[Rfam]
RNA sequence: CCGUCCAGUCGCUGGGACGCCGCCCCGGACCGGGCCCUUCCCGGCUACGCUGGCCGGGUGCGUCUGCCACCAGCCAGGCGCAAAGCCGACAGCCGUCGCAACCCGGGAGUACUCACAUG
Numbered sequence: 001c002c003g004u005c006c007a008g009u010c011g012c013u014g015g016g017a018c019g020c021c022g023c024c025c026c027g028g029a030c031c032g033g034g035c036c037c038u039u040c041c042c043g044g045c046u047a048c049g050c051u052g053g054c055c056g057g058g059u060g061c062g063u064c065u066g067c068c069a070c071c072a073g074c075c076a077g078g079c080g081c082a083a084a085g086c087c088g089a090c091a092g093c094c095g096u097c098g099c100a101a102c103c104c105g106g107g108a109g110u111a112c113u114c115a116c117a118u119g
Stems, first nucleotide, its partner, number of pairs: 059082004064077003085099002088097003